[Rfam]
This 153-nucleotide sequence from Mesobacillus selenatarsenatis belongs to the Rfam family "PyrR binding site". This family represents the PyrR binding site and terminator structure. Rfam classes the family as a cis-regulatory element.
RNA sequence: ACCACCUUUUAAUAAAGUCCAGAGAGGCUUAAAAGGGUGUUAUGAGCGAACCGGCUUAUUCAAGAUGCACGCAACCCCGGUUUUACCGGGAUUAUGCCGGCAAGCUCAUAGUCAAGCACCCUGUUGAACAUAAAACAGGGUGCUUUUUUUCUU
Numbered sequence: 001a002c003c004a005c006c007u008u009u010u011a012a013u014a015a016a017g018u019c020c021a022g023a024g025a026g027g028c029u030u031a032a033a034a035g036g037g038u039g040u041u042a043u044g045a046g047c048g049a050a051c052c053g054g055c056u057u058a059u060u061c062a063a064g065a066u067g068c069a070c071g072c073a074a075c076c077c078c079g080g081u082u083u084u085a086c087c088g089g090g091a092u093u094a095u096g097c098c099g100g101c102a103a104g105c106u107c108a109u110a111g112u113c114a115a116g117c118a119c120c121c122u123g124u125u126g127a128a129c130a131u132a133a134a135a136c137a138g139g140g141u142g143c144u145u146u147u148u149u150u151c152u153u
Stems, first nucleotide, its partner, number of pairs: 005036005015030005043108005051100005111148001114145011